The record is a 120-nucleotide RNA sequence from Actinopolymorpha singaporensis, which matches "mraW RNA" in Rfam. The family has 45 seed sequences and 851 matches in Rfam 15.1. A search with the family's covariance model found it, with a score of 52 bits. Taxonomically the source falls in Actinopolymorpha (Bacteria, Bacillati, Actinomycetes, Actinopolymorphaceae). The family's consensus secondary structure is taken from published work.
RNA sequence: CAGUGGUCGUGCGGUGAGGUCUCCAGCCCGCUCCCUGCGCCUUCUGACGCACCUUCCCCGGCGCCAGACGGCGGUUUCCCCAGUGAGCGGGCGGGGACCUGGCCGCACGGCAACGACACG
Numbered sequence: 001c002a003g004u005g006g007u008c009g010u011g012c013g014g015u016g017a018g019g020u021c022u023c024c025a026g027c028c029c030g031c032u033c034c035c036u037g038c039g040c041c042u043u044c045u046g047a048c049g050c051a052c053c054u055u056c057c058c059c060g061g062c063g064c065c066a067g068a069c070g071g072c073g074g075u076u077u078c079c080c081c082a083g084u085g086a087g088c089g090g091g092c093g094g095g096g097a098c099c100u101g102g103c104c105g106c107a108c109g110g111c112a113a114c115g116a117c118a119c120g
Base pairs, nucleotide, nucleotide: 010107011106012105013104014103015102018099019098021096022095023094024093026092027091028090029089030088031087032086033085035083038073039072040071041070043068044067045066046065048063049062050061